[Rfam]
RNA sequence: UAUUAGGUUGGUGUGAAAGUAAUUGUGGUUUUUGCUAUUACUUUCAAUGGCAAAAACCACAAUUACUUUCGCACCAACCUGAUA
Number, nucleotide and partner (000 for none) at each position: 001u084002a083003u082004u081005a080006g079007g078008u077009u076010g075011g074012u073013g072014u071015g070016a069017a068018a067019g066020u065021a064022a063023u062024u061025g060026u059027g058028g057029u056030u055031u054032u053033u052034g051035c050036u049037a048038u047039u046040a000041c000042u000043u000044u000045c000046a039047a038048u037049g036050g035051c034052a033053a032054a031055a030056a029057c028058c027059a026060c025061a024062a023063u022064u021065a020066c019067u018068u017069u016070c015071g014072c013073a012074c011075c010076a009077a008078c007079c006080u005081g004082a003083u002084a001

Shown here is an 84-nucleotide sequence from Cercocebus atys, a member of the family "mir-548 microRNA precursor family". Rfam 15.1 lists 3,009 matches to the family in 27 species.